This 85-nucleotide sequence belongs to the Rfam family "skipping-rope RNA". Rfam classes the family as a small RNA.
RNA sequence: UAAAAAUGAGGAUAGAGAAUGUGCCGCUAUCGCCCCUUUUAAAAAAGGUAUGGAGAUGUGGGAAAAGGCAGACCCACCGUUUUUU
Numbered sequence: 001u002a003a004a005a006a007u008g009a010g011g012a013u014a015g016a017g018a019a020u021g022u023g024c025c026g027c028u029a030u031c032g033c034c035c036c037u038u039u040u041a042a043a044a045a046a047g048g049u050a051u052g053g054a055g056a057u058g059u060g061g062g063a064a065a066a067g068g069c070a071g072a073c074c075c076a077c078c079g080u081u082u083u084u085u
Stems, first nucleotide, its partner, number of pairs: 002084007011031005022070004033053001035048004058077005
Pairs were carried over by alignment from the consensus structure, which is taken from published work.